[Rfam]
A member of the RNA family "Small nucleolar RNA SNORA57" from Castor canadensis, 147 nucleotides long. About the family: U99 belongs to the H/ACA class of snoRNAs which are thought to guide the sites of modification of uridines to pseudouridines, the target for this family is unknown. By type it is an H/ACA-box small nucleolar RNA. A search with the family's covariance model found it, with a score of 93 bits. Rfam 15.1 lists 1,736 matches to the family in 530 species. Taxonomically the source falls in Castor (Eukaryota, Deuterostomia, Dipnotetrapodomorpha, Boreoeutheria). Its family is annotated with RNA processing and nucleolus in the Gene Ontology. The literature on the family includes a 2003 paper in Nucleic Acids Res by Vitali et al., "Identification of 13 novel human modification guide RNAs".

RNA sequence: CCUCCUUUUCUUGGACGGGACUGGUGUAUUGUUGUCGUCUCUUCCCGUUAUGUACAGAGGCAGAAGGAAAGGGCUCCGUUCCUCUUGGUGCCAUGUCUCGGUGCUGGCAGCUUCCAUCGCCGGUUCUAUCCUCAACGCCAGACACGG
Numbered sequence: 001c002c003u004c005c006u007u008u009u010c011u012u013g014g015a016c017g018g019g020a021c022u023g024g025u026g027u028a029u030u031g032u033u034g035u036c037g038u039c040u041c042u043u044c045c046c047g048u049u050a051u052g053u054a055c056a057g058a059g060g061c062a063g064a065a066g067g068a069a070a071g072g073g074c075u076c077c078g079u080u081c082c083u084c085u086u087g088g089u090g091c092c093a094u095g096u097c098u099c100g101g102u103g104c105u106g107g108c109a110g111c112u113u114c115c116a117u118c119g120c121c122g123g124u125u126c127u128a129u130c131c132u133c134a135a136c137g138c139c140a141g142a143c144a145c146g147g
Stems, first nucleotide, its partner, number of pairs: 001060004016047005023039004086140005104123005110117001